[Rfam]
RNA: Small nucleolar RNA SNORA67
Organism: Ailuropoda melanoleuca
RNA sequence: AUCCAAGGUGAUUCCCUCUCCAAGGGGCCUGCCCGUGCCCCCUUCAGGAAAGUAGCAGCUUGGAAUAAGAUCCGGCAUGCCUCAGGUUACGGGGGAGAGGGUGUGUCUGUCUCCUUUGCCUGCCUUUGGCUGCCUACACGC
Number, nucleotide and partner (000 for none) at each position: 001a000002u064003c063004c062005a061006a060007g059008g000009u057010g056011a000012u000013u000014c000015c000016c000017u000018c000019u049020c048021c047022a043023a000024g041025g040026g039027g038028c037029c000030u000031g000032c000033c000034c000035g000036u000037g028038c027039c026040c025041c024042c000043u022044u000045c000046a000047g021048g020049a019050a000051a000052g000053u000054a000055g000056c010057a009058g000059c007060u006061u005062g004063g003064a002065a000066u000067a000068a000069g000070a000071u000072c000073c000074g000075g131076c000077a000078u129079g000080c000081c000082u000083c000084a000085g000086g000087u000088u000089a000090c000091g115092g114093g000094g112095g111096a110097g000098a000099g000100g000101g000102u000103g000104u000105g000106u000107c000108u000109g000110u096111c095112u094113c000114c092115u091116u000117u000118g000119c000120c000121u000122g000123c000124c000125u000126u000127u000128g000129g078130c000131u075132g000133c000134c000135u000136a000137c000138a000139c000140g000141c000